A member of the RNA family "Tombusvirus 5' UTR" from Tombusvirus cucumis, 152 nucleotides long. NCBI's taxonomy places the organism under Viruses, Riboviria, Tombusviridae, Tombusvirus, Tombusvirus cucumis. It is annotated as a cis-regulatory element. About the family: Tomato bushy stunt virus is the prototype member of the Tombusviridae family. The literature on the family includes a 2003 paper in RNA by Ray et al., "A second functional RNA domain in the 5' UTR of the Tomato bushy stunt virus genome: Intra- and interdomain interactions mediate viral RNA replication". Pairs were carried over by alignment from the consensus structure, which is taken from published work.
[Rfam]
RNA sequence: AAAUUCUCCAGGAUUUCUCAACCUUGGUUGUGCUAUCUGGUGACUUGCGCGUGUUGUCUGCGUAGAGAAUUUCUCUCCUUAACCAAAAGGGGUUUGAAGACUGGGUCUACCGCUUGCGGGAUAAAUUGUAACUUCCAGUAAACGACGACAUG
Dot-bracket structure: ((((((((..((((....................)))).......(((((.........)))))))))))))..(((((........))))).......(((((.((..(((....))))).............))))).............